[Rfam]
RNA sequence: CUCUUAUCAAGAGAGGUGGAGGGAAGUGCCCUUUGAAGCCCGGCAACCGUCAAUAGUGAUAACUAUUGAAAUGGUGCCAAUUCACUCAAAGCUAAUGUGGCUUUGAAAGAUGAGAG
Numbered sequence: 001c002u003c004u005u006a007u008c009a010a011g012a013g014a015g016g017u018g019g020a021g022g023g024a025a026g027u028g029c030c031c032u033u034u035g036a037a038g039c040c041c042g043g044c045a046a047c048c049g050u051c052a053a054u055a056g057u058g059a060u061a062a063c064u065a066u067u068g069a070a071a072u073g074g075u076g077c078c079a080a081u082u083c084a085c086u087c088a089a090a091g092c093u094a095a096u097g098u099g100g101c102u103u104u105g106a107a108a109g110a111u112g113a114g115a116g
Stems, first nucleotide, its partner, number of pairs: 001116008013041001015040003021031003025086004042078004047074002050069006082108001087105006
Shown here is a 116-nucleotide sequence from Mesobacillus persicus, a member of the family "SAM riboswitch aptamer (S box leader)".
A search with the family's covariance model found it, with a score of 88 bits.